Notes: The record is an 89-nucleotide sequence from Diaphorina citri, which matches "mir-277 microRNA precursor family" in Rfam. On this family, see Liu et al., BMC Genomics 2010: "MicroRNAs of Bombyx mori identified by Solexa sequencing".
RNA sequence: UCUGCUACGGAGUAUCGUAUCAGGAGCGCAUUUAUACGAACCGAUUUGACAGUUGUAAAUGCACUAUCUGGUACGACAUUCCUAGGCGA
Numbered sequence: 001u002c003u004g005c006u007a008c009g010g011a012g013u014a015u016c017g018u019a020u021c022a023g024g025a026g027c028g029c030a031u032u033u034a035u036a037c038g039a040a041c042c043g044a045u046u047u048g049a050c051a052g053u054u055g056u057a058a059a060u061g062c063a064c065u066a067u068c069u070g071g072u073a074c075g076a077c078a079u080u081c082c083u084a085g086g087c088g089a
Stems, first nucleotide, its partner, number of pairs: 009082003016075009026064001028062009

Taxonomically the source falls in Diaphorina (Eukaryota, Hexapoda, Pterygota, Neoptera).